[Rfam]
RNA sequence: GUUACCGAUUACCUUUCUGUGAGGAUUGGGAAAGGGGGUGAUAGAAUGAGUGAUAUCGCUAUUGAGCUCGUCCUUACUAUCAUGGCAGAAGUGAUAGCAGGUCUCUGCCUGCAUUACCUUUGCAAGUGGCUAGAUAGUAAGGAAGAUGACCGAGACUAGCCCAAAAAACACCCGUUAAUCUUAAUAGAACGUAAAAAAAGCCCCAAGGAAUCGCACUUCCAAGGGGCUUUGGUGAUAUUUG
Numbered sequence: 001g002u003u004a005c006c007g008a009u010u011a012c013c014u015u016u017c018u019g020u021g022a023g024g025a026u027u028g029g030g031a032a033a034g035g036g037g038g039u040g041a042u043a044g045a046a047u048g049a050g051u052g053a054u055a056u057c058g059c060u061a062u063u064g065a066g067c068u069c070g071u072c073c074u075u076a077c078u079a080u081c082a083u084g085g086c087a088g089a090a091g092u093g094a095u096a097g098c099a100g101g102u103c104u105c106u107g108c109c110u111g112c113a114u115u116a117c118c119u120u121u122g123c124a125a126g127u128g129g130c131u132a133g134a135u136a137g138u139a140a141g142g143a144a145g146a147u148g149a150c151c152g153a154g155a156c157u158a159g160c161c162c163a164a165a166a167a168a169c170a171c172c173c174g175u176u177a178a179u180c181u182u183a184a185u186a187g188a189a190c191g192u193a194a195a196a197a198a199a200g201c202c203c204c205a206a207g208g209a210a211u212c213g214c215a216c217u218u219c220c221a222a223g224g225g226g227c228u229u230u231g232g233u234g235a236u237a238u239u240u241g
Stems, first nucleotide, its partner, number of pairs: 005036002009032002012029002016025002038182001040180001048069004053063001083177004088172001091169002095122003100117001104113001128161006135154001138153001141151002184238003190234001194230002199228006207220004